RNA sequence: AGACUGAUAGCUGUAACGAAGUGCUGUGCGCACGGGCUGGACACUAUC
Numbered sequence: 001a002g003a004c005u006g007a008u009a010g011c012u013g014u015a016a017c018g019a020a021g022u023g024c025u026g027u028g029c030g031c032a033c034g035g036g037c038u039g040g041a042c043a044c045u046a047u048c
Stems, first nucleotide, its partner, number of pairs: 008039005021033004
Dot-bracket structure: .......(((((........((((.....)))).))))).........
RNA: ssnA RNA